RNA sequence: GCCGAGCUUGGUUGCGCAAGCUUGUGACCCAAGUGGGGGCAUUAAAGUGAUGGAAUGGAGGUUCUACUUCGAUCGGGUUGGAUUUGAAUGUGGCUUUAAUCUGGCCUGCCCAUUUCAAGCAAAGAGCCAAGCCAUGGGGCUUGGGCGGAGGCCCGUGACUUCAUGGUCUUCUAAAGUGGAGGGAAAAGCGUGAGGCUGGCUUUACAGAGCAGCGAACACCUCCCACUCUUUGCCGUGAAAGGAUAACGAGCCGUGUCUAUUGGGUCCAAUAUAGCCCAUUGGUGUGUCCCUGACCAAACCAUCAUUUUU
Numbered sequence: 001g002c003c004g005a006g007c008u009u010g011g012u013u014g015c016g017c018a019a020g021c022u023u024g025u026g027a028c029c030c031a032a033g034u035g036g037g038g039g040c041a042u043u044a045a046a047g048u049g050a051u052g053g054a055a056u057g058g059a060g061g062u063u064c065u066a067c068u069u070c071g072a073u074c075g076g077g078u079u080g081g082a083u084u085u086g087a088a089u090g091u092g093g094c095u096u097u098a099a100u101c102u103g104g105c106c107u108g109c110c111c112a113u114u115u116c117a118a119g120c121a122a123a124g125a126g127c128c129a130a131g132c133c134a135u136g137g138g139g140c141u142u143g144g145g146c147g148g149a150g151g152c153c154c155g156u157g158a159c160u161u162c163a164u165g166g167u168c169u170u171c172u173a174a175a176g177u178g179g180a181g182g183g184a185a186a187a188g189c190g191u192g193a194g195g196c197u198g199g200c201u202u203u204a205c206a207g208a209g210c211a212g213c214g215a216a217c218a219c220c221u222c223c224c225a226c227u228c229u230u231u232g233c234c235g236u237g238a239a240a241g242g243a244u245a246a247c248g249a250g251c252c253g254u255g256u257c258u259a260u261u262g263g264g265u266c267c268a269a270u271a272u273a274g275c276c277c278a279u280u281g282g283u284g285u286g287u288c289c290c291u292g293a294c295c296a297a298a299c300c301a302u303c304a305u306u307u308u309u
Base pairs, nucleotide, nucleotide: 001040002039003038004023005022006021007020008019009018010017028037029036030035044308045307046306047305048304049303050302051301052300053299056296057295059291060290061288063286065284066283070282072280075277076276077275078274079273080267081266082265083264084263085262086261087260089259092257093256095255102253103252104251105250107248108247110242111241113240114239115238116237117236119233120232121231122230123229124228125227126226129170130169131168132166133165134164135163136162137161138160139159140157142155143154144153145152146151171176178223179222180221181220182219189214190213191212196207197206198205
RNA: Plant signal recognition particle RNA
Organism: Momordica charantia